[Rfam]
The record is a 48-nucleotide RNA sequence from Aerobium aerolatum, which matches "Guanidine-II riboswitch aptamer (mini-ykkC)" in Rfam. The source organism's lineage runs through Bacteria, Pseudomonadati, Hyphomicrobiales, Aerobium and Aerobium aerolatum. Pairs were carried over by alignment from the consensus structure, which is taken from published work. Its family is annotated with regulation of gene expression in the Gene Ontology. About the family: Simpler in structure and has fewer highly conserved nucleotide positions than the ykkC-yxkD leader. Despite this each of its two stem-loop structures directly bind free guanidine. Therefore, mini-ykkC RNA motif represents a distinct class of guanidine-sensing RNAs.
RNA sequence: GAGAGAGGACGGCCUCUCACCUUCCAAUCAACACGCGGGACGACCCGA
Number, nucleotide and partner (000 for none) at each position: 001g020002a000003g018004a017005g016006a015007g014008g013009a000010c000011g000012g000013c008014c007015u006016c005017u004018c003019a000020c001021c000022u000023u000024c000025c000026a000027a000028u000029c000030a000031a000032c000033a000034c000035g000036c047037g046038g045039g044040a000041c000042g000043a000044c039045c038046c037047g036048a000